The record is a 269-nucleotide RNA sequence from Naegleria fowleri, which matches "Nuclear RNase P" in Rfam. Rfam links the family to the GO terms ribonuclease P activity, tRNA processing and ribonuclease P complex. Rfam classes the family as a ribozyme. Lineage of the source: Eukaryota > Discoba > Eutetramitea > Naegleriidae > Naegleria. The literature on the family includes a 1998 paper in Annu Rev Biochem by Frank and Pace, "Ribonuclease P: unity and diversity in a tRNA processing ribozyme". A search with the family's covariance model found it, with a score of 74 bits. Rfam describes the family as follows. Ribonuclease P (RNase P) is a ubiquitous endoribonuclease, found in archaea, bacteria and eukarya as well as chloroplasts and mitochondria. Its best characterised activity is the generation of mature 5'-ends of tRNAs by cleaving the 5'-leader elements of precursor-tRNAs. Cellular RNase Ps are ribonucleoproteins. RNA from bacterial RNase Ps retains its catalytic activity in the absence of the protein subunit, i.e. it is a ribozyme. The family is grouped with related families in Rfam's "RNaseP clan".
[Rfam]
RNA sequence: GUGCUUGGAUGUUUAGAGGAGAAUACAUACGAGCGGAGGAGAGCGUAAACUCCUCCACUGCACUCUCUCAACUCUCUCCUGGGAAGGUCUGAGGUGUCGUCCACUCACGAGAAGUGGGGUUGGUAAAUCAGCAAUGCUAAUGUCCUGGAACCAGAAACGGGUCCUGGGUGGAAACACUCGGUUGAAACGGCUAGGAUGACACCGCAAAGGUUUAGUUAGAUAAACAACGCAGCUCACUUGGGCUGCAACACAAUUCAGACUACUGGCAC
Dot-bracket structure: ((((.[.[.[......(((((.................(((.((...............)).)))..........)))))........(((((.((((.....(((((.....)))))((((.(.....).)))).......((((((..............((...............)).........)))))).)))).....................].].].(((((((....))))))).......))))).......))))